[Rfam]
RNA sequence: UGGAGGCUUGGCAUCCCGUUCUGGGAAGGGCAAGCGGAGAUCCAGUCUGGUCUCUACCAGCGUAUGCAUGUGCGUAAGCUGGUCAAGCAUCGUUGAUAGAAGCUGCUCUUGGUCACCGGAGGGUCUCCGGUUUCAUACGCAGAGACAUCC
Numbered sequence: 001u002g003g004a005g006g007c008u009u010g011g012c013a014u015c016c017c018g019u020u021c022u023g024g025g026a027a028g029g030g031c032a033a034g035c036g037g038a039g040a041u042c043c044a045g046u047c048u049g050g051u052c053u054c055u056a057c058c059a060g061c062g063u064a065u066g067c068a069u070g071u072g073c074g075u076a077a078g079c080u081g082g083u084c085a086a087g088c089a090u091c092g093u094u095g096a097u098a099g100a101a102g103c104u105g106c107u108c109u110u111g112g113u114c115a116c117c118g119g120a121g122g123g124u125c126u127c128c129g130g131u132u133u134c135a136u137a138c139g140c141a142g143a144g145a146c147a148u149c150c
Stems, first nucleotide, its partner, number of pairs: 006035004057082005063076005115131007
Shown here is a 150-nucleotide sequence from Giardia duodenalis, a member of the family "Small nucleolar RNA GlsR19". Rfam classes the family as an H/ACA-box small nucleolar RNA. The literature on the family includes a 2012 paper in Nucleic Acids Res by Hudson et al., "Evolutionarily divergent spliceosomal snRNAs and a conserved non-coding RNA processing motif in Giardia lamblia". NCBI's taxonomy places the organism under Eukaryota, Metamonada, Diplomonadida, Hexamitidae, Giardia duodenalis.